A member of the RNA family "RAGATH-18 RNA", 72 nucleotides long.
RNA sequence: CCUUUGGAGUGCUAUACAAACGCUAUUAGCUUGUCUUUCAAGGCAGCGAGAGCGAGUACGAUGAACAAGGAU
Dot-bracket structure: ((((....(((((.......(((.....(((..((......)).)))....)))))))).......))))..
Description
By type it is a small RNA. The base pairs follow the family's consensus structure, which is taken from published work.